[Rfam]
RNA sequence: GAGCUGUGAAGACACAAAAUCAUACUGAUGUAUCUCUGAAGAUUAUCAGAUCCAACUCUGAGCUCACUGUUCUU
Numbered sequence: 001g002a003g004c005u006g007u008g009a010a011g012a013c014a015c016a017a018a019a020u021c022a023u024a025c026u027g028a029u030g031u032a033u034c035u036c037u038g039a040a041g042a043u044u045a046u047c048a049g050a051u052c053c054a055a056c057u058c059u060g061a062g063c064u065c066a067c068u069g070u071u072c073u074u
Stems, first nucleotide, its partner, number of pairs: 001065004

A member of the RNA family "Small nucleolar RNA SNORD19" from Pogona vitticeps, 74 nucleotides long. The source organism's lineage runs through Eukaryota, Sarcopterygii, Tetrapoda, Acrodonta and Pogona. Its family is annotated with nucleolus and RNA processing in the Gene Ontology. The family is grouped with related families in Rfam's "SNORD19 clan". Pairs were carried over by alignment from the consensus structure. By type it is a C/D-box small nucleolar RNA.